[Rfam]
RNA sequence: CCGGGUGGAACGCCGAAUCCUGCCGCCGCCCGGAAUCCGCGCCCCCUACGUGGACCAGGCAGGAGCGGGGAACCCGGAAAGUCGCCGAUUCGCCAAGCGGAACGGCUCGGGGUGAAGUCGUGCGGUAGUGCGGCCGGGUAACUCCACCCGAACCCGACAGCUCACCUCGCAGGCGGAGGAGAGGAAAU
Numbered sequence: 001c002c003g004g005g006u007g008g009a010a011c012g013c014c015g016a017a018u019c020c021u022g023c024c025g026c027c028g029c030c031c032g033g034a035a036u037c038c039g040c041g042c043c044c045c046c047u048a049c050g051u052g053g054a055c056c057a058g059g060c061a062g063g064a065g066c067g068g069g070g071a072a073c074c075c076g077g078a079a080a081g082u083c084g085c086c087g088a089u090u091c092g093c094c095a096a097g098c099g100g101a102a103c104g105g106c107u108c109g110g111g112g113u114g115a116a117g118u119c120g121u122g123c124g125g126u127a128g129u130g131c132g133g134c135c136g137g138g139u140a141a142c143u144c145c146a147c148c149c150g151a152a153c154c155c156g157a158c159a160g161c162u163c164a165c166c167u168c169g170c171a172g173g174c175g176g177a178g179g180a181g182a183g184g185a186a187a188u
Stems, first nucleotide, its partner, number of pairs: 011175004018064007065170006075109002110155003118133004136149004
Dot-bracket structure: ..........((((...(((((((.................................)))))))((((((....((...............................))(((.....((((........))))..((((......))))...))).........)))))).)))).............
The record is a 188-nucleotide RNA sequence, which matches "c-di-AMP riboswitch aptamer (ydaO/yuaA leader)" in Rfam. This family represents a conserved RNA structure found upstream of the ydaO and yuaA genes in Bacillus subtilis and related genes in other bacteria.